A member of the RNA family "small nucleolar RNA snR35" from Leucocoprinus leucothites, 182 nucleotides long. The family's RNA type in Rfam is H/ACA-box small nucleolar RNA.

[Rfam]
Nucleotides: 182
Stems, first nucleotide, its partner, number of pairs: 022097001024095003038084004049072004110175005127163002130160005137153002
Number, partner (000 for none) and nucleotide at each position: 001000c002000u003000c004000g005000u006000g007000c008000g009000g010000c011000g012000g013000c014000a015000c016000g017000g018000c019000c020000a021000u022097g023000u024095c025094a026093u027000u028000u029000c030000c031000c032000c033000a034000u035000g036000u037000u038084g039083c040082u041081c042000a043000u044000g045000a046000c047000u048000g049072c050071g051070u052069g053000g054000u055000c056000u057000u058000c059000a060000g061000g062000c063000c064000c065000u066000u067000c068000a069052c070051g071050c072049g073000g074000u075000u076000g077000u078000u079000u080000c081041g082040a083039g084038u085000g086000u087000c088000a089000g090000g091000c092000c093026g094025u095024g096000u097022c098000c099000u100000g101000a102000g103000c104000a105000a106000u107000g108000c109000u110175c111174g112173g113172a114171c115000a116000u117000c118000u119000u120000a121000g122000u123000a124000c125000c126000c127163u128162c129000u130160u131159c132158u133157u134156c135000u136000g137153c138152g139000c140000u141000c142000u143000u144000a145000u146000c147000a148000a149000c150000a151000u152138c153137g154000c155000u156134g157133a158132g159131g160130a161000u162128g163127g164000g165000u166000c167000g168000g169000u170000a171114g172113u173112u174111c175110g176000u177000a178000c179000a180000a181000a182000u